[Rfam]
The family of this 149-nucleotide RNA sequence from Pseudomonas cremoricolorata is "PrrF RNA".
On this family, see Djapgne et al., J Bacteriol 2018: "The Pseudomonas aeruginosa PrrF1 and PrrF2 small regulatory RNAs (sRNAs) promote 2-alkyl-4-quinolone production through redundant regulation of the antR mRNA".
RNA sequence: UUGACUGCCAAAUGAUAACGAUUAUUAUUGCACUCAGCAGGUCGAGAGACCCGCUGGAUAAUCCGAAGGCCCUCAGGUCGGGCGUUCAGACUAUCUCCUCAUCAGGCUAAUCACGGUUUUUGACCCAGCUUUUGCUGGGUCUUUUUUUU
Numbered sequence: 001u002u003g004a005c006u007g008c009c010a011a012a013u014g015a016u017a018a019c020g021a022u023u024a025u026u027a028u029u030g031c032a033c034u035c036a037g038c039a040g041g042u043c044g045a046g047a048g049a050c051c052c053g054c055u056g057g058a059u060a061a062u063c064c065g066a067a068g069g070c071c072c073u074c075a076g077g078u079c080g081g082g083c084g085u086u087c088a089g090a091c092u093a094u095c096u097c098c099u100c101a102u103c104a105g106g107c108u109a110a111u112c113a114c115g116g117u118u119u120u121u122g123a124c125c126c127a128g129c130u131u132u133u134g135c136u137g138g139g140u141c142u143u144u145u146u147u148u149u
Stems, first nucleotide, its partner, number of pairs: 035056004040051004063089001065087003069083001071080001097106003122141008

About the family: PrrF RNA is a small RNA involved in iron homeostasis and is found exclusively in Pseudomonas species. Taxonomically the source falls in Pseudomonas (Bacteria, Pseudomonadati, Gammaproteobacteria, Pseudomonadaceae). Rfam links the family to the GO term sRNA-mediated gene silencing. Pairs were carried over by alignment from the consensus structure, which is taken from published work. It scores 146 bits against the family's covariance model. The family has 18 seed sequences and 107 matches in Rfam 15.1.